[Rfam]
RNA sequence: CUAGUAGAUCGCCUUAUCGCUGUUUUAAUUUAUUUUAAAAUGGAGGAAAGUCCGGACACCGUAGUUCAACAUAGUGGCUAACGGCCACCAGCCGAGAGGUUAGGACCAGUGCAACAGAAAGAAUGUACAGAUUAUGCUGUAGUGAAACCAGGUAAACUCUAUGUGGUGCAAUGUUAUGUAAACCAGUGCUUGAGGGUUGAACGCCCGAUGCUGGAGGGUAAGCAGCUAAAGUGUUUUGGUAACAAAACACUCAGAUAAAUGAUAAGGGCUUUUUAAGUUUAUUUUGGGUUUUACCUAAGGUGGUUUAAAGGGUACAGAAUUCGGCUUAUAGAUUUACUUACCUA
Numbered sequence: 001c002u003a004g005u006a007g008a009u010c011g012c013c014u015u016a017u018c019g020c021u022g023u024u025u026u027a028a029u030u031u032a033u034u035u036u037a038a039a040a041u042g043g044a045g046g047a048a049a050g051u052c053c054g055g056a057c058a059c060c061g062u063a064g065u066u067c068a069a070c071a072u073a074g075u076g077g078c079u080a081a082c083g084g085c086c087a088c089c090a091g092c093c094g095a096g097a098g099g100u101u102a103g104g105a106c107c108a109g110u111g112c113a114a115c116a117g118a119a120a121g122a123a124u125g126u127a128c129a130g131a132u133u134a135u136g137c138u139g140u141a142g143u144g145a146a147a148c149c150a151g152g153u154a155a156a157c158u159c160u161a162u163g164u165g166g167u168g169c170a171a172u173g174u175u176a177u178g179u180a181a182a183c184c185a186g187u188g189c190u191u192g193a194g195g196g197u198u199g200a201a202c203g204c205c206c207g208a209u210g211c212u213g214g215a216g217g218g219u220a221a222g223c224a225g226c227u228a229a230a231g232u233g234u235u236u237u238g239g240u241a242a243c244a245a246a247a248c249a250c251u252c253a254g255a256u257a258a259a260u261g262a263u264a265a266g267g268g269c270u271u272u273u274u275a276a277g278u279u280u281a282u283u284u285u286g287g288g289u290u291u292u293a294c295c296u297a298a299g300g301u302g303g304u305u306u307a308a309a310g311g312g313u314a315c316a317g318a319a320u321u322c323g324g325c326u327u328a329u330a331g332a333u334u335u336a337c338u339u340a341c342c343u344a
Base pairs, nucleotide, nucleotide: 003338004337005336006335007334008333009332010331011329012267013266014265015264016263017262018261020043021042022041023040024039025038026037027036028035048327049326050325052324053323054322055321056320057168058167059166060165064202065201066200067199069164070163071162072161073160074088075087076086077085078084089103090101091100092099093098104159105158109157110156111153112152127140128139129138130137172224173223174222175221183214184213185212186211187210194206195205196204197203231250232249233248234247235246236245237244238243
About this RNA: A member of the RNA family "Bacterial RNase P class A" from Algibacter lectus, 344 nucleotides long. Rfam links the family to the GO terms ribonuclease P activity, dimeric ribonuclease P complex and tRNA processing.